[Rfam]
RNA sequence: UUAUGAGCAAAAGUUACUUUUUAGAUUCAUUGGAUAACUAAUGUAUUUAGCCUAAAUCUAAGCUAGAUACAUCAGUUGUUCAAUGAAUCUAAAAAGUAACUUUUGCUUAUAA
Number, nucleotide and partner (000 for none) at each position: 001u000002u111003a110004u109005g108006a107007g106008c000009a104010a103011a102012a101013g100014u000015u098016a097017c096018u095019u094020u093021u092022u091023a090024g089025a000026u087027u086028c085029a084030u083031u082032g081033g080034a079035u078036a077037a076038c075039u074040a000041a072042u071043g070044u000045a000046u000047u000048u065049a064050g063051c062052c000053u000054a000055a000056a000057u000058c000059u000060a000061a000062g051063c050064u049065a048066g000067a000068u000069a000070c043071a042072u041073c000074a039075g038076u037077u036078g035079u034080u033081c032082a031083a030084u029085g028086a027087a026088u000089c024090u023091a022092a021093a020094a019095a018096g017097u016098a015099a000100c013101u012102u011103u010104u009105g000106c007107u006108u005109a004110u003111a002112a000
RNA: MIR2593 microRNA precursor family